[Rfam]
RNA sequence: AACCCAUAACAUACAAAUUCUCGUAUAUGUGCAGGAAUAGGCCUGCAUGUCUCUACCUGAUCACCGGAAAUGAUCGGACUACGGGGGAAUUUCUUCAGGCG
Numbered sequence: 001a002a003c004c005c006a007u008a009a010c011a012u013a014c015a016a017a018u019u020c021u022c023g024u025a026u027a028u029g030u031g032c033a034g035g036a037a038u039a040g041g042c043c044u045g046c047a048u049g050u051c052u053c054u055a056c057c058u059g060a061u062c063a064c065c066g067g068a069a070a071u072g073a074u075c076g077g078a079c080u081a082c083g084g085g086g087g088a089a090u091u092u093c094u095u096c097a098g099g100c101g
Base pairs, nucleotide, nucleotide: 018087019086020085021084022083023082024081025080029048030047031046032045033044034043035042057077058076059075060074061073062072063071
Shown here is a 101-nucleotide RNA from Paenibacillus sp. CAA11, a member of the family "Purine riboswitch aptamer". A search with the family's covariance model found it, with a score of 77 bits. The family's consensus secondary structure is taken from published work.